[Rfam]
RNA sequence: AGAGCUACUCACUAUAAGUUUGAGCACCAAGCCUCAGGCUAAUUGUUUGGUGUUCAACCUUACAGUGAGUAGAGAU
Numbered sequence: 001a002g003a004g005c006u007a008c009u010c011a012c013u014a015u016a017a018g019u020u021u022g023a024g025c026a027c028c029a030a031g032c033c034u035c036a037g038g039c040u041a042a043u044u045g046u047u048u049g050g051u052g053u054u055c056a057a058c059c060u061u062a063c064a065g066u067g068a069g070u071a072g073a074g075a076u
Stems, first nucleotide, its partner, number of pairs: 006071008015062003025052008
RNA: mir-971 microRNA precursor family
Organism: Sipha flava